[Rfam]
RNA sequence: CCGUUCCCGGAUCGCCCCCCGUCAGCGUCAUACGCCCACGGGGGCGCAACUG
Numbered sequence: 001c002c003g004u005u006c007c008c009g010g011a012u013c014g015c016c017c018c019c020c021g022u023c024a025g026c027g028u029c030a031u032a033c034g035c036c037c038a039c040g041g042g043g044g045c046g047c048a049a050c051u052g
Stems, first nucleotide, its partner, number of pairs: 016044007025035004
The record is a 52-nucleotide RNA sequence from Sulfitobacter albidus, which matches "ffh sRNA" in Rfam. On this family, see Meyer et al., BMC Genomics 2009: "Identification of candidate structured RNAs in the marine organism 'Candidatus Pelagibacter ubique'". The match comes from Rfam's covariance-model search (48 bits). Pairs were carried over by alignment from the consensus structure, which is taken from published work.